The family of this 139-nucleotide RNA sequence is "Bacteriophage Diversity-Generating Retroelement RNA". The sequence is in the family's curated seed alignment. For this family Rfam cites "RNA control of reverse transcription in a diversity-generating retroelement" (Handa et al., Nature, 2025).
RNA sequence: GCUCCACCGCUGCCACGGCACGGUGGGCCGACCUUACCUAGUGUGGUCAGCCAUGCCGUCCUGCUUCGGCAAACACCUUUGGGGGUUCAGAAAAACGACGAGUAGCCGGGCGCAAGCCCGUGUGAAAGUCGGGUCUGGC
Numbered sequence: 001g002c003u004c005c006a007c008c009g010c011u012g013c014c015a016c017g018g019c020a021c022g023g024u025g026g027g028c029c030g031a032c033c034u035u036a037c038c039u040a041g042u043g044u045g046g047u048c049a050g051c052c053a054u055g056c057c058g059u060c061c062u063g064c065u066u067c068g069g070c071a072a073a074c075a076c077c078u079u080u081g082g083g084g085g086u087u088c089a090g091a092a093a094a095a096c097g098a099c100g101a102g103u104a105g106c107c108g109g110g111c112g113c114a115a116g117c118c119c120g121u122g123u124g125a126a127a128g129u130c131g132g133g134u135c136u137g138g139c
Stems, first nucleotide, its partner, number of pairs: 001028002004026006012019002062071003085139001087138005096131004105123002